[Rfam]
RNA sequence: CCUGGAACUGCAAAGUGCUGUUAGUGCAGGUAGUAUGCUUCAGAUCUACUGCAAUACAAGCACUUCCGGAGUUACAGG
Numbered sequence: 001c002c003u004g005g006a007a008c009u010g011c012a013a014a015g016u017g018c019u020g021u022u023a024g025u026g027c028a029g030g031u032a033g034u035a036u037g038c039u040u041c042a043g044a045u046c047u048a049c050u051g052c053a054a055u056a057c058a059a060g061c062a063c064u065u066c067c068g069g070a071g072u073u074a075c076a077g078g
Stems, first nucleotide, its partner, number of pairs: 004075001006073002009070001011068001013065007022056002025053003029050005
RNA: mir-17 microRNA precursor family
Organism: Chiloscyllium punctatum